[Rfam]
RNA sequence: GGGGACGAAACGGAUUCGACGGGGAUGUGUAAGCUCGUCGUUGCAUGCCGAGCUUCUAUUUGCUCGUAAAACUGAUAGAAAAACAAUUAUAAUCGCCGACGAUUAUAACUACGCAGUAGCAGCUUAAUAACCUGCUCAUUGCCGUUCCCCCAGUCUUCGCCCGUAAGACUGGACCGGAGCGCCGACCUAACGGGCUGGCUUCGUUGAUGGUGUCUGUACUUCAACUGGCGAGAACUUCAUAGACUAGCAUUGGAUCGCCACGUUUCCGCGGCAAGUCCAACGCGAAACUUAAGCCGGAAACUAAGCAUGUAGAUACGAGAGGGGAGCAUUUGCGGACGCGGGUUCGACUCCCGCCGUCUCCACCA
Numbered sequence: 001g002g003g004g005a006c007g008a009a010a011c012g013g014a015u016u017c018g019a020c021g022g023g024g025a026u027g028u029g030u031a032a033g034c035u036c037g038u039c040g041u042u043g044c045a046u047g048c049c050g051a052g053c054u055u056c057u058a059u060u061u062g063c064u065c066g067u068a069a070a071a072c073u074g075a076u077a078g079a080a081a082a083a084c085a086a087u088u089a090u091a092a093u094c095g096c097c098g099a100c101g102a103u104u105a106u107a108a109c110u111a112c113g114c115a116g117u118a119g120c121a122g123c124u125u126a127a128u129a130a131c132c133u134g135c136u137c138a139u140u141g142c143c144g145u146u147c148c149c150c151c152a153g154u155c156u157u158c159g160c161c162c163g164u165a166a167g168a169c170u171g172g173a174c175c176g177g178a179g180c181g182c183c184g185a186c187c188u189a190a191c192g193g194g195c196u197g198g199c200u201u202c203g204u205u206g207a208u209g210g211u212g213u214c215u216g217u218a219c220u221u222c223a224a225c226u227g228g229c230g231a232g233a234a235c236u237u238c239a240u241a242g243a244c245u246a247g248c249a250u251u252g253g254a255u256c257g258c259c260a261c262g263u264u265u266c267c268g269c270g271g272c273a274a275g276u277c278c279a280a281c282g283c284g285a286a287a288c289u290u291a292a293g294c295c296g297g298a299a300a301c302u303a304a305g306c307a308u309g310u311a312g313a314u315a316c317g318a319g320a321g322g323g324g325a326g327c328a329u330u331u332g333c334g335g336a337c338g339c340g341g342g343u344u345c346g347a348c349u350c351c352c353g354c355c356g357u358c359u360c361c362a363c364c365a
Base pairs, nucleotide, nucleotide: 001361002360003359004358005357006356007355020334021333023331024330025329026328027327028326035319038318039317040316041315044309045308046307047306048305049066050065051064052063053062054080055079056078057077058076059075060074115140116139117138119135120134121133122132143181144180145179146178147177148176150172151171152170154168155167156166157165159195160194161193162192163191164190200228201227203225204224205223206222207221212244213243214242215241216240247283248282250280251279252278253277254276255275257272258271259270262301263300264299265298268294269293338354339353340352341351342350
The family of this 365-nucleotide RNA from Desulfopila aestuarii is "transfer-messenger RNA". Rfam links the family to the GO term RNA catabolic process. The base pairs follow the family's consensus structure, which is taken from published work. The match comes from Rfam's covariance-model search (211 bits).